[Rfam]
RNA sequence: AACAUUUGUGGCCAUCUCUUCCUAGUUCUUUCUGGCCAGGAAAAGCUGGGCUGAGAAGGUGAAGGGGAAAAAAA
Numbered sequence: 001a002a003c004a005u006u007u008g009u010g011g012c013c014a015u016c017u018c019u020u021c022c023u024a025g026u027u028c029u030u031u032c033u034g035g036c037c038a039g040g041a042a043a044a045g046c047u048g049g050g051c052u053g054a055g056a057a058g059g060u061g062a063a064g065g066g067g068a069a070a071a072a073a074a
Base pairs, nucleotide, nucleotide: 015056016055017054018053021050022049023048024047025046029042030041031040032039033038

The family of this 74-nucleotide RNA sequence from Carlito syrichta is "mir-320 microRNA precursor family". The family's consensus secondary structure was predicted with RNAalifold. The literature on the family includes a 2006 paper in Genome Res by Berezikov et al., "Many novel mammalian microRNA candidates identified by extensive cloning and RAKE analysis". Lineage of the source: Eukaryota > Eumetazoa > Tetrapoda > Theria > Carlito.